[Rfam]
RNA sequence: UUUAGCCGUGAUUGUCCAAACGCAAUUCUUGUUUAUCUUUUAUUUGUAUCAAGAAUUGAGGUGGACAUUCGUUGAUAAA
Numbered sequence: 001u002u003u004a005g006c007c008g009u010g011a012u013u014g015u016c017c018a019a020a021c022g023c024a025a026u027u028c029u030u031g032u033u034u035a036u037c038u039u040u041u042a043u044u045u046g047u048a049u050c051a052a053g054a055a056u057u058g059a060g061g062u063g064g065a066c067a068u069u070c071g072u073u074g075a076u077a078a079a
Stems, first nucleotide, its partner, number of pairs: 002078003006074001010069003014066005021060001023058009
RNA: mir-219 microRNA precursor family